[Rfam]
Rfam assigns this 129-nucleotide sequence from Coprococcus sp. AF21-14LB to the family "FMN riboswitch aptamer (RFN element)". The family's consensus secondary structure is taken from published work. Rfam links the family to the GO term FMN binding. The match comes from Rfam's covariance-model search (114 bits). The organism belongs to Coprococcus, within Bacteria.
Nucleotides: 129
Stems, first nucleotide, its partner, number of pairs: 005125006017029003031109002033099002035048004043097002052074002079095005101112003
Number, partner (000 for none) and nucleotide at each position: 001000g002000a003000a004000a005125u006124u007123c008122u009121u010120c011000g012000g013000g014000g015000u016000a017029g018028g019027g020000u021000g022000c023000a024000a025000g026000u027019c028018c029017c030000a031109a032108c033099c034098g035048g036047c037046g038045g039000u040000a041000u042000a043097g044096u045038c046037c047036g048035c049000g050000a051000c052074c053073u054000g055000u056000u057000c058000a059000g060000g061000c062000a063000a064000g065000u066000c067000c068000u069000g070000a071000a072000u073053g074052g075000c076000u077000g078000a079095u080094u081093u082092g083091g084000u085000g086000u087000a088000a089000u090000u091083c092082c093081a094080a095079a096044a097043c098034c099033g100000a101112c102111a103110g104000u105000a106000a107000a108032g109031u110103c111102u112101g113000g114000a115000u116000g117000a118000g119000a120010g121009a122008a123007g124006a125005a126000c127000a128000u129000g